[Rfam]
RNA sequence: CGGCUCAGUUUCCUGGGAGGUGGGCUAAGCCUGCCCCACCUCCCCUCACAUGAGCCUAGAGCAGAGAGGCUAGGCUCCCUUCCGCACAGGAGAGGCGGUUAAGACAGGAGUCUCGCCUGUGUUGUCCUUGCCUCACAUUU
Dot-bracket structure: .((((((.......((((((((((..........))))))))))......)))))).........(((((.(((...(.(.......(((....................))).....).)....))).)))))......